[Rfam]
RNA sequence: AAUUUAAUUGAAAUAAAUCCUCAUAUAUUUUUGGGAAUAUGGCCCAAUUGUCUCUACCCGUCACCGUAAAUGAUGGACUAUGAAGGAAGAUGCUUCAUUG
Numbered sequence: 001a002a003u004u005u006a007a008u009u010g011a012a013a014u015a016a017a018u019c020c021u022c023a024u025a026u027a028u029u030u031u032u033g034g035g036a037a038u039a040u041g042g043c044c045c046a047a048u049u050g051u052c053u054c055u056a057c058c059c060g061u062c063a064c065c066g067u068a069a070a071u072g073a074u075g076g077a078c079u080a081u082g083a084a085g086g087a088a089g090a091u092g093c094u095u096c097a098u099u100g
Stems, first nucleotide, its partner, number of pairs: 018086002021083005031047005058076006
Rfam assigns this 100-nucleotide RNA sequence from Saliterribacillus persicus to the family "Purine riboswitch aptamer". Pairs were carried over by alignment from the consensus structure, which is taken from published work. Taxonomically the source falls in Saliterribacillus (Bacteria, Bacillota, Bacilli, Bacillaceae). Riboswitches are metabolite binding domains within certain messenger RNAs that serve as precision sensors for their corresponding targets. Allosteric rearrangement of mRNA structure is mediated by ligand binding, and this results in modulation of gene expression. Rfam 15.1 lists 4,097 matches to the family in 1,411 species.